[Rfam]
Nucleotides: 069
Stems, first nucleotide, its partner, number of pairs: 004065003008061004013056002017052007025044003
Number, partner (000 for none) and nucleotide at each position: 001000a002000u003000u004065a005064u006063u007000a008061c009060c010059c011058u012000a013056a014055a015000u016000u017052g018051a019050g020049c021048a022047c023046u024000a025044a026043c027042u028000u029000g030000a031000u032000g033000a034000u035000u036000g037000a038000u039000u040000a041000c042027a043026g044025u045000a046023a047022g048021u049020g050019c051018u052017u053000c054000u055014u056013u057000u058011a059010g060009g061008g062000c063006a064005g065004u066000u067000u068000u069000u
The record is a 69-nucleotide sequence from Channa argus, which matches "miR-430 microRNA precursor family" in Rfam. The family has 32 seed sequences and 24,817 matches in Rfam 15.1. For this family Rfam cites "MicroRNAs regulate brain morphogenesis in zebrafish" (Giraldez et al., Science, 2005). The organism belongs to Channa, within Eukaryota. Rfam links the family to the GO terms miRNA-mediated post-transcriptional gene silencing and RISC complex. The family is grouped with related families in Rfam's "mir-290 clan".